[Rfam]
RNA sequence: CGCAAGUCACCGCCUAAUCGGGACCACUCGUGAGAGUGCCCGUACCGGGAACCCGAUUUCCACUGGGGUGAAUCCUGCUUCGAUCGCAAUACGCGGUCGAGUGGGUAGGGCUGAUCUUCCCAGCCCGAACCCGUCAGCUAACUCGGUCGGCGGAUGAUUGGAAGAAAC
Numbered sequence: 001c002g003c004a005a006g007u008c009a010c011c012g013c014c015u016a017a018u019c020g021g022g023a024c025c026a027c028u029c030g031u032g033a034g035a036g037u038g039c040c041c042g043u044a045c046c047g048g049g050a051a052c053c054c055g056a057u058u059u060c061c062a063c064u065g066g067g068g069u070g071a072a073u074c075c076u077g078c079u080u081c082g083a084u085c086g087c088a089a090u091a092c093g094c095g096g097u098c099g100a101g102u103g104g105g106u107a108g109g110g111c112u113g114a115u116c117u118u119c120c121c122a123g124c125c126c127g128a129a130c131c132c133g134u135c136a137g138c139u140a141a142c143u144c145g146g147u148c149g150g151c152g153g154a155u156g157a158u159u160g161g162a163a164g165a166a167a168c
Stems, first nucleotide, its partner, number of pairs: 011152004019042004044147006054065002066132003074105007108126004